[Rfam]
RNA sequence: ACUCCGUCUACCUUUGUGUUUAGACUAUCUGUUCAGGACUCCCAAAUUGUACAGUAUUCUGCACAUUGGUUAGGCUGGGCU
Numbered sequence: 001a002c003u004c005c006g007u008c009u010a011c012c013u014u015u016g017u018g019u020u021u022a023g024a025c026u027a028u029c030u031g032u033u034c035a036g037g038a039c040u041c042c043c044a045a046a047u048u049g050u051a052c053a054g055u056a057u058u059c060u061g062c063a064c065a066u067u068g069g070u071u072a073g074g075c076u077g078g079g080c081u
Stems, first nucleotide, its partner, number of pairs: 012069002016066004021061004026056002029054004034049002
The record is an 81-nucleotide RNA from Pongo pygmaeus, which matches "mir-199 microRNA precursor family" in Rfam. Rfam's curators put it in the seed alignment. This family consists of the microRNA (miRNA) precursor mir-199 which appears to be specific to humans. Animal miRNAs are transcribed as ~70nt precursors and subsequently processed by the Dicer enzyme to give a ~22nt product. In this case the mature sequence comes from the 3' arm of the precursor. The extents of the hairpin precursors are not generally known and are estimated based on hairpin prediction. The products are thought to have regulatory roles through complementarity to mRNA. The involvement of Dicer in miRNA processing suggests a relationship with the phenomenon of RNA interference. miRNAs are numbered based on the sequence of the mature RNA. A reference for the family is Mourelatos et al. (2002), "miRNPs: a novel class of ribonucleoproteins containing numerous microRNAs", Genes Dev. Rfam 15.1 lists 1,828 matches to the family in 648 species.